[Rfam]
RNA sequence: GUCUAUCUUCGGGGCAGGGUGUAAUUCCCGACCGGCGGUGAUGAGUCAAAUGAUUCUAAGCCCGCGAGCCUGCAGUUUGGGCAGGAUUUGGUGAGAAUCCAAAGCCGACAGUAAAGUCUGGAUGGGAGAAGAUGGAG
Numbered sequence: 001g002u003c004u005a006u007c008u009u010c011g012g013g014g015c016a017g018g019g020u021g022u023a024a025u026u027c028c029c030g031a032c033c034g035g036c037g038g039u040g041a042u043g044a045g046u047c048a049a050a051u052g053a054u055u056c057u058a059a060g061c062c063c064g065c066g067a068g069c070c071u072g073c074a075g076u077u078u079g080g081g082c083a084g085g086a087u088u089u090g091g092u093g094a095g096a097a098u099c100c101a102a103a104g105c106c107g108a109c110a111g112u113a114a115a116g117u118c119u120g121g122a123u124g125g126g127a128g129a130a131g132a133u134g135g136a137g
Stems, first nucleotide, its partner, number of pairs: 003135008017029003031117002033107002035065004060105002070081001087103005109120003